A member of the RNA family "c-di-AMP riboswitch aptamer (ydaO/yuaA leader)" from Kitasatospora griseola, 156 nucleotides long. Pairs were carried over by alignment from the consensus structure. Its family is annotated with cyclic-di-AMP binding and regulation of gene expression in the Gene Ontology. It scores 69 bits against the family's covariance model. NCBI's taxonomy places the organism under Bacteria, Bacillati, Actinomycetota, Actinomycetes, Kitasatospora.
[Rfam]
RNA sequence: CCAGAUACCACGCCACGGCAGGAGCGGGGGAACCACAGGUAAGUCGCCGGGCCCGGGAACAUCCGGGAACGGCUCGGGGUGAAGCCGCAGUUCCGCGGCCGGGCAACUCUCGCCCGAACCCGACAGCUCACCUCGCAGGCGUCGGAGAGGAAUGCU
Numbered sequence: 001c002c003a004g005a006u007a008c009c010a011c012g013c014c015a016c017g018g019c020a021g022g023a024g025c026g027g028g029g030g031a032a033c034c035a036c037a038g039g040u041a042a043g044u045c046g047c048c049g050g051g052c053c054c055g056g057g058a059a060c061a062u063c064c065g066g067g068a069a070c071g072g073c074u075c076g077g078g079g080u081g082a083a084g085c086c087g088c089a090g091u092u093c094c095g096c097g098g099c100c101g102g103g104c105a106a107c108u109c110u111c112g113c114c115c116g117a118a119c120c121c122g123a124c125a126g127c128u129c130a131c132c133u134c135g136c137a138g139g140c141g142u143c144g145g146a147g148a149g150g151a152a153u154g155c156u
Base pairs, nucleotide, nucleotide: 001139002138006023008021024136025135026134027133028132029131034076077121078120079119085098086097087096088095101115102114103113104112
Dot-bracket structure: ((...(.(............).)((((((....(.........................................)(((.....((((......))))..((((.......))))...))).........)))))).)).................